[Rfam]
RNA sequence: CGGUGAGGUAGAGGUCGCGGAUAUGAAGAGUAAGCGCGUGGAGACGUUCAAGAGCCGUCUGUGAAUCGCUGCCGAAAGGGAUAUCCGCCGAAACCCGCACCGCCGCUCUCACAGCGGUGCGGGUUGGGGCCGUUGCCGAACAGGCACGGAACUGUCACACUGCUUUUUUGGCACAAGCCGGGAAGCAGCGUGUUGCGCUAUCUUUUCA
Numbered sequence: 001c002g003g004u005g006a007g008g009u010a011g012a013g014g015u016c017g018c019g020g021a022u023a024u025g026a027a028g029a030g031u032a033a034g035c036g037c038g039u040g041g042a043g044a045c046g047u048u049c050a051a052g053a054g055c056c057g058u059c060u061g062u063g064a065a066u067c068g069c070u071g072c073c074g075a076a077a078g079g080g081a082u083a084u085c086c087g088c089c090g091a092a093a094c095c096c097g098c099a100c101c102g103c104c105g106c107u108c109u110c111a112c113a114g115c116g117g118u119g120c121g122g123g124u125u126g127g128g129g130c131c132g133u134u135g136c137c138g139a140a141c142a143g144g145c146a147c148g149g150a151a152c153u154g155u156c157a158c159a160c161u162g163c164u165u166u167u168u169u170g171g172c173a174c175a176a177g178c179c180g181g182g183a184a185g186c187a188g189c190g191u192g193u194u195g196c197g198c199u200a201u202c203u204u205u206u207c208a
Stems, first nucleotide, its partner, number of pairs: 006203006017088008034072002036069003092125012126153002130149003134146004156192003160188009

Shown here is a 208-nucleotide RNA from Paenibacillus albidus, a member of the family "Lysine riboswitch aptamer". The match comes from Rfam's covariance-model search (92 bits). Gene Ontology term of the family: lysine biosynthetic process.